Y RNA: a 104-nucleotide sequence from Otolemur garnettii. Pairs were carried over by alignment from the consensus structure, which is taken from published work. The organism belongs to Otolemur, within Eukaryota. For this family Rfam cites "5'-YRNA fragments derived by processing of transcripts from specific YRNA genes and pseudogenes are abundant in human serum and plasma" (Dhahbi et al., Physiol Genomics, 2013). The family has 104 seed sequences and 26,986 matches in Rfam 15.1.
RNA sequence: GGCUGGUCGGAGAGCAGUGGCACUUACAACUAAUGGAUCACACCCAAAGUUACAGAUGCCUUUGUUCCUUCUCCAUUUCCACUACUUCACUUAAUUAGCCUUUA
Numbered sequence: 001g002g003c004u005g006g007u008c009g010g011a012g013a014g015c016a017g018u019g020g021c022a023c024u025u026a027c028a029a030c031u032a033a034u035g036g037a038u039c040a041c042a043c044c045c046a047a048a049g050u051u052a053c054a055g056a057u058g059c060c061u062u063u064g065u066u067c068c069u070u071c072u073c074c075a076u077u078u079c080c081a082c083u084a085c086u087u088c089a090c091u092u093a094a095u096u097a098g099c100c101u102u103u104a
Stems, first nucleotide, its partner, number of pairs: 001100007010092002014088001016083005022078001028066003032062002